RNA sequence: GGUCAUACUUUUCCACAGCUUUCUUGAACUUUCUUUUUCAUUUCCAUUGUUUUUUUCUUAAACAAAAGUAAGAAGAAAAAAAACUUUAAGAUUAAGCAUUUUGGAAGCUCAAGAAAGCUGUGGGAAAACAUGACAA
Numbered sequence: 001g002g003u004c005a006u007a008c009u010u011u012u013c014c015a016c017a018g019c020u021u022u023c024u025u026g027a028a029c030u031u032u033c034u035u036u037u038u039c040a041u042u043u044c045c046a047u048u049g050u051u052u053u054u055u056u057c058u059u060a061a062a063c064a065a066a067a068g069u070a071a072g073a074a075g076a077a078a079a080a081a082a083a084c085u086u087u088a089a090g091a092u093u094a095a096g097c098a099u100u101u102u103g104g105a106a107g108c109u110c111a112a113g114a115a116a117g118c119u120g121u122g123g124g125a126a127a128a129c130a131u132g133a134c135a136a
Base pairs, nucleotide, nucleotide: 003133004132005131006130013123014122015121017119018118019117020116021115022114024112025111026110027109029107030106031105032104033103
RNA: MIR396 microRNA precursor family